RNA: Small nucleolar RNA SNORD113/SNORD114 family
Organism: Muntiacus reevesi
RNA sequence: GGGACCAGGGAUGACCGUUGGUGGAGCAUGAGUCAGGACGGUGACCACUUUGUGUCUGAAACUCUGAGGUCCAG
Numbered sequence: 001g002g003g004a005c006c007a008g009g010g011a012u013g014a015c016c017g018u019u020g021g022u023g024g025a026g027c028a029u030g031a032g033u034c035a036g037g038a039c040g041g042u043g044a045c046c047a048c049u050u051u052g053u054g055u056c057u058g059a060a061a062c063u064c065u066g067a068g069g070u071c072c073a074g
Stems, first nucleotide, its partner, number of pairs: 002072005